[Rfam]
RNA sequence: AAGUCCUUUAACACAGCCCCGUGAGGUUGAGAAGGUAACGGUUUGAAAUACGUAGGGUACGUAUACCCUUUUUCAAAAAAAUCCUCUCGCACACGACGAGAGGAUUUUUUUAUA
Numbered sequence: 001a002a003g004u005c006c007u008u009u010a011a012c013a014c015a016g017c018c019c020c021g022u023g024a025g026g027u028u029g030a031g032a033a034g035g036u037a038a039c040g041g042u043u044u045g046a047a048a049u050a051c052g053u054a055g056g057g058u059a060c061g062u063a064u065a066c067c068c069u070u071u072u073u074c075a076a077a078a079a080a081a082u083c084c085u086c087u088c089g090c091a092c093a094c095g096a097c098g099a100g101a102g103g104a105u106u107u108u109u110u111u112a113u114a
Stems, first nucleotide, its partner, number of pairs: 005035005014029005047073002050070001054069006077109013
The family of this 114-nucleotide RNA is "PyrR binding site". It scores 55 bits against the family's covariance model. By type it is a cis-regulatory element.